[Rfam]
RNA sequence: AAAAUAACGAGGGAGCUCCCUUCAGUCCAAGCACAGAUUGGAAAGGGAUGAAAACUAUCUCCCGCAUCAUUCACUCAAUCAAAGUAGCAUAAAUUGAAUCCUUUUCUACUUAAUGGUUAAAUGAAUGAGUCGGCAGCUAAUUCAAUUCCUUCAUCACAUCCAUGAGUGGGCUGAAGGGAGCUCCCUUCAUCGCAUCC
Numbered sequence: 001a002a003a004a005u006a007a008c009g010a011g012g013g014a015g016c017u018c019c020c021u022u023c024a025g026u027c028c029a030a031g032c033a034c035a036g037a038u039u040g041g042a043a044a045g046g047g048a049u050g051a052a053a054a055c056u057a058u059c060u061c062c063c064g065c066a067u068c069a070u071u072c073a074c075u076c077a078a079u080c081a082a083a084g085u086a087g088c089a090u091a092a093a094u095u096g097a098a099u100c101c102u103u104u105u106c107u108a109c110u111u112a113a114u115g116g117u118u119a120a121a122u123g124a125a126u127g128a129g130u131c132g133g134c135a136g137c138u139a140a141u142u143c144a145a146u147u148c149c150u151u152c153a154u155c156a157c158a159u160c161c162a163u164g165a166g167u168g169g170g171c172u173g174a175a176g177g178g179a180g181c182u183c184c185c186u187u188c189a190u191c192g193c194a195u196c197c
Base pairs, nucleotide, nucleotide: 013183014182015181016180017179018178019177020176023173024172025171026170027169028168029167036160059136060135062133063132064131068127069126070125071124